[Rfam]
RNA sequence: AUACAGCUAGAUCCAUACCCCUAAACUCCCUAGAUAAGGACAGCGCCAUUCCCUGCGCUGUCCCCUUUUU
Dot-bracket structure: ....(.(((.....................))).)..(((((((((........))))))))).......
Numbered sequence: 001a002u003a004c005a006g007c008u009a010g011a012u013c014c015a016u017a018c019c020c021c022u023a024a025a026c027u028c029c030c031u032a033g034a035u036a037a038g039g040a041c042a043g044c045g046c047c048a049u050u051c052c053c054u055g056c057g058c059u060g061u062c063c064c065c066u067u068u069u070u
Stems, first nucleotide, its partner, number of pairs: 005035001007033003038063009
A member of the RNA family "Listeria sRNA sbrA" from Mesobacillus campisalis, 70 nucleotides long. By type it is a small RNA. It scores 56 bits against the family's covariance model. On this family, see Toledo-Arana et al., Nature 2009: "The Listeria transcriptional landscape from saprophytism to virulence".